[Rfam]
RNA: Selenocysteine insertion sequence 4
Organism: [Clostridium] hylemonae
RNA sequence: GGCACCUGCACACGUUGCGGCGCAACGAUGGUAAAAGA
Dot-bracket structure: ....((......((((((...))))))..)).......
Numbered sequence: 001g002g003c004a005c006c007u008g009c010a011c012a013c014g015u016u017g018c019g020g021c022g023c024a025a026c027g028a029u030g031g032u033a034a035a036a037g038a
Stems, first nucleotide, its partner, number of pairs: 005031002013027006